[Rfam]
RNA sequence: CGAGAGAUUCAUGGUUAAGGAACUAGGCAAAAUAGACCCGUAACUUCGGGAGAAGGGUCGCCCCCUUCUGGGGGGCCGCAGUGAAGAGGUCCAGGCGACUGUUUAUCAAAAACACAGGGCUCUGCCAAAUCGAAAGAUGAAGUAUAGGGCCUGACACCUGCCCGGUGCCGGAAGGUUAAAGGGAGAUGUUAUCCGUAAGGUGAAGCAUUGAACUGAAGCCCCGGUAAACGGCGGCCGUAACUAUAACGGUCCUAAGGUAGCGAAAUUCCUUGUCGGGUAAGUUCCGACCUGCACGAAUGGUGCAACGAUCUGGACACUGUCUCAACCAUGAUCUCG
Numbered sequence: 001c002g003a004g005a006g007a008u009u010c011a012u013g014g015u016u017a018a019g020g021a022a023c024u025a026g027g028c029a030a031a032a033u034a035g036a037c038c039c040g041u042a043a044c045u046u047c048g049g050g051a052g053a054a055g056g057g058u059c060g061c062c063c064c065c066u067u068c069u070g071g072g073g074g075g076c077c078g079c080a081g082u083g084a085a086g087a088g089g090u091c092c093a094g095g096c097g098a099c100u101g102u103u104u105a106u107c108a109a110a111a112a113c114a115c116a117g118g119g120c121u122c123u124g125c126c127a128a129a130u131c132g133a134a135a136g137a138u139g140a141a142g143u144a145u146a147g148g149g150c151c152u153g154a155c156a157c158c159u160g161c162c163c164g165g166u167g168c169c170g171g172a173a174g175g176u177u178a179a180a181g182g183g184a185g186a187u188g189u190u191a192u193c194c195g196u197a198a199g200g201u202g203a204a205g206c207a208u209u210g211a212a213c214u215g216a217a218g219c220c221c222c223g224g225u226a227a228a229c230g231g232c233g234g235c236c237g238u239a240a241c242u243a244u245a246a247c248g249g250u251c252c253u254a255a256g257g258u259a260g261c262g263a264a265a266u267u268c269c270u271u272g273u274c275g276g277g278u279a280a281g282u283u284c285c286g287a288c289c290u291g292c293a294c295g296a297a298u299g300g301u302g303c304a305a306c307g308a309u310c311u312g313g314a315c316a317c318u319g320u321c322u323c324a325a326c327c328a329u330g331a332u333c334u335c336g
Base pairs, nucleotide, nucleotide: 001336002335003334004333009331010330011329012328013327014326015325016324018322019321020320035059036058037057038056039055044049060076061075062074063073064072065071077081089315090314091313092312093311094310095309096307097306100114101113102112117152118151119150120149121148122147123146124145125142129138130137131136155302156301157300158299160232161231162230165229166228167225168224169223170222171221174220175219176218180214181213185209186208187207188206189205193200233251234250235249236248237247238246252256262289272288273287274286275285276284277283
RNA: Bacterial large subunit ribosomal RNA, nucleotides 1625 to 1960
Organism: Flagellimonas eckloniae